[Rfam]
RNA sequence: CCAAAGGCUCUUUUAAGAGCCAUCCACACAACAUUAAGAGCCUGUU
Numbered sequence: 001c002c003a004a005a006g007g008c009u010c011u012u013u014u015a016a017g018a019g020c021c022a023u024c025c026a027c028a029c030a031a032c033a034u035u036a037a038g039a040g041c042c043u044g045u046u
Base pairs, nucleotide, nucleotide: 006021007020008019009018010017011016
This 46-nucleotide sequence from Muraenolepis orangiensis belongs to the Rfam family "Histone 3' UTR stem-loop".
NCBI's taxonomy places the organism under Eukaryota, Bilateria, Neopterygii, Teleostei, Muraenolepis.
The mRNAs of metazoan histone genes lack a poly-A tail. 3' end processing occurs at a site between a highly conserved stem-loop (modelled by this family) and a purine rich region around 20 nts downstream (the histone downstream element, or HDE). The stem-loop is bound by a 31 kDa stem-loop binding protein (SLBP - also termed the histone hairpin binding protein, or HBP). Together with U7 snRNA binding of the HDE, SLBP binding nucleate s the formation of the processing complex. The histone 3' UTR stem-loop is also involved in nucleocytoplasmic transport of the mRNA, and in stability regulation and translation efficiency in the cytoplasm.
The base pairs follow the family's consensus structure, which is taken from published work.
A search with the family's covariance model found it, with a score of 37 bits.